Description
Rfam assigns this 62-nucleotide RNA sequence from Rubellimicrobium sp. CFH 75288 to the family "terC RNA". Pairs were carried over by alignment from the consensus structure, which is taken from published work. Lineage of the source: Bacteria > Pseudomonadota > Rhodobacterales > Roseobacteraceae > Rubellimicrobium. The family's RNA type in Rfam is cis-regulatory element. A search with the family's covariance model found it, with a score of 55 bits.

[Rfam]
RNA sequence: CCGGCGGGCCGGGCCCCUCUGACGACGCUGCCCUCGGGGCGUCGCCAUGUCGGACCGUGACA
Numbered sequence: 001c002c003g004g005c006g007g008g009c010c011g012g013g014c015c016c017c018u019c020u021g022a023c024g025a026c027g028c029u030g031c032c033c034u035c036g037g038g039g040c041g042u043c044g045c046c047a048u049g050u051c052g053g054a055c056c057g058u059g060a061c062a
Base pairs, nucleotide, nucleotide: 006056007055009053010052011051012050023044024043025042026041027040028039029038